[Rfam]
RNA sequence: GGUCUGCUCUUCUUGUUCCCGGGCACACCAGCCGCAGCGAAAGGGGCGGCCGAGCUGUCUGUGCCGCGCGU
Number, nucleotide and partner (000 for none) at each position: 001g029002g028003u027004c000005u025006g024007c023008u022009c021010u000011u000012c000013u000014u000015g000016u000017u000018c000019c000020c000021g009022g008023g007024c006025a005026c000027a003028c002029c001030a000031g050032c049033c048034g047035c046036a000037g000038c000039g000040a000041a000042a000043g000044g000045g000046g035047c034048g033049g032050c031051c070052g069053a000054g067055c066056u000057g064058u063059c000060u000061g000062u000063g058064c057065c000066g055067c054068g000069c052070g051071u000
RNA: Pseudomonas sRNA P5
Organism: Pseudomonas paraeruginosa